[Rfam]
RNA sequence: UGUCUUUUAUAUUUGUAUCCAUGAAAACAAUGACAGGAACUAAACAAUGGUGGUGGUACAUGAACUAAUCGGUUCGUGAACAUGCUGCUGUGUCCUGUUUGAUCAUAUUUCAAAAAAGAGGCUUGCU
Number, nucleotide and partner (000 for none) at each position: 001u000002g000003u000004c000005u000006u000007u000008u000009a000010u000011a000012u000013u000014u000015g000016u000017a000018u000019c000020c000021a000022u000023g000024a000025a000026a000027a000028c000029a000030a000031u000032g000033a000034c000035a000036g095037g094038a093039a000040c000041u000042a000043a000044a091045c090046a089047a000048u000049g086050g085051u084052g083053g000054u000055g000056g081057u080058a000059c078060a077061u076062g075063a000064a073065c072066u071067a000068a000069u000070c000071g066072g065073u064074u000075c062076g061077u060078g059079a000080a057081c056082a000083u052084g051085c050086u049087g000088c000089u046090g045091u044092g000093u038094c037095c036096u000097g000098u000099u000100u000101g000102a000103u000104c000105a000106u000107a000108u000109u000110u000111c000112a000113a000114a000115a000116a000117a000118g000119a000120g000121g000122c000123u000124u000125g000126c000127u000

This 127-nucleotide sequence from Cytophaga sp. belongs to the Rfam family "Bacteroidete tryptophan peptide leader RNA". Gene Ontology terms of the family: S-adenosylmethionine metabolic process and regulation of gene expression. The base pairs follow the family's consensus structure, which is taken from published work.